[Rfam]
RNA sequence: GCAGCAGAUGAUGAGAAAAAAGAAUAGGGACAUCUUACACGCCCUUCUGGGAUGUGAUGACGUAUUCUAUAGGGAUCUCUAUGAUGCUAU
Numbered sequence: 001g002c003a004g005c006a007g008a009u010g011a012u013g014a015g016a017a018a019a020a021a022g023a024a025u026a027g028g029g030a031c032a033u034c035u036u037a038c039a040c041g042c043c044c045u046u047c048u049g050g051g052a053u054g055u056g057a058u059g060a061c062g063u064a065u066u067c068u069a070u071a072g073g074g075a076u077c078u079c080u081a082u083g084a085u086g087c088u089a090u
Base pairs, nucleotide, nucleotide: 003088004087005086006085
Dot-bracket structure: ..((((..............................................................................))))..